[Rfam]
RNA: Alphaproteobacteria transfer-messenger RNA
Organism: Komagataeibacter saccharivorans
RNA sequence: CCCCUUGCCAUAUGCCUUGGCGCUCCCUAUGUUCACAGGUGCAGGAGGGGCUUGCCCCUUGGCUAUGGCGAUAAACGGCGCGUGGAAUAAGUGUUGUGGACCCGGGGGCGGUACCCGGCGUCUCCACCAUUUUCCCCUUUAUGGGGAACAGGGGGACGAAACAGGCUCGACACGCAUGGUAAAGACCCGCCUUUUGCCCGGCAUUGUACCACCGUUAUCGGGCUAAAUCACAAGUGCCAACGAUAACUCUGAGGUGCUCGCUGUCGCUGCAUAAGCGAUAAGCGCGGUUCGGGAGGGCACCGGGCAACAGAAGCCCUCCCA
Numbered sequence: 001c002c003c004c005u006u007g008c009c010a011u012a013u014g015c016c017u018u019g020g021c022g023c024u025c026c027c028u029a030u031g032u033u034c035a036c037a038g039g040u041g042c043a044g045g046a047g048g049g050g051c052u053u054g055c056c057c058c059u060u061g062g063c064u065a066u067g068g069c070g071a072u073a074a075a076c077g078g079c080g081c082g083u084g085g086a087a088u089a090a091g092u093g094u095u096g097u098g099g100a101c102c103c104g105g106g107g108g109c110g111g112u113a114c115c116c117g118g119c120g121u122c123u124c125c126a127c128c129a130u131u132u133u134c135c136c137c138u139u140u141a142u143g144g145g146g147a148a149c150a151g152g153g154g155g156a157c158g159a160a161a162c163a164g165g166c167u168c169g170a171c172a173c174g175c176a177u178g179g180u181a182a183a184g185a186c187c188c189g190c191c192u193u194u195u196g197c198c199c200g201g202c203a204u205u206g207u208a209c210c211a212c213c214g215u216u217a218u219c220g221g222g223c224u225a226a227a228u229c230a231c232a233a234g235u236g237c238c239a240a241c242g243a244u245a246a247c248u249c250u251g252a253g254g255u256g257c258u259c260g261c262u263g264u265c266g267c268u269g270c271a272u273a274a275g276c277g278a279u280a281a282g283c284g285c286g287g288u289u290c291g292g293g294a295g296g297g298c299a300c301c302g303g304g305c306a307a308c309a310g311a312a313g314c315c316c317u318c319c320c321a
Base pairs, nucleotide, nucleotide: 041063042062067198068197069196070195071194077191078190079189080188082186083185092176093175094174096173097172098171102118103117104116105115106114119158120157121156122155123154124153125152199214200213201212204225206223209221210220285302286301287300288299292318293317295315296314